The family of this 139-nucleotide sequence from Digitaria exilis is "Small nucleolar RNA Z247". The base pairs follow the family's consensus structure, which was predicted with PFOLD. Rfam 15.1 lists 7,071 matches to the family in 142 species. Taxonomically the source falls in Digitaria (Eukaryota, Embryophyta, Poaceae, Paniceae). A reference for the family is Chen et al. (2003), "The high diversity of snoRNAs in plants: identification and comparative study of 120 snoRNA genes from Oryza sativa", Nucleic Acids Res.
[Rfam]
RNA sequence: CCCCUCGAUGAAGAAGAACUCAUCGAGUACAUCAUCACCGGCUUGAAUGGCGAAUUCGAGUCUCUUGUCUCGGCCCUGAUCGCAAGGGUUGAACCCAUCAGCAUGGAGGAGUUGUACUCCCAAAUGCUGAGUUAUGAGA
Numbered sequence: 001c002c003c004c005u006c007g008a009u010g011a012a013g014a015a016g017a018a019c020u021c022a023u024c025g026a027g028u029a030c031a032u033c034a035u036c037a038c039c040g041g042c043u044u045g046a047a048u049g050g051c052g053a054a055u056u057c058g059a060g061u062c063u064c065u066u067g068u069c070u071c072g073g074c075c076c077u078g079a080u081c082g083c084a085a086g087g088g089u090u091g092a093a094c095c096c097a098u099c100a101g102c103a104u105g106g107a108g109g110a111g112u113u114g115u116a117c118u119c120c121c122a123a124a125u126g127c128u129g130a131g132u133u134a135u136g137a138g139a
Stems, first nucleotide, its partner, number of pairs: 004138004095106004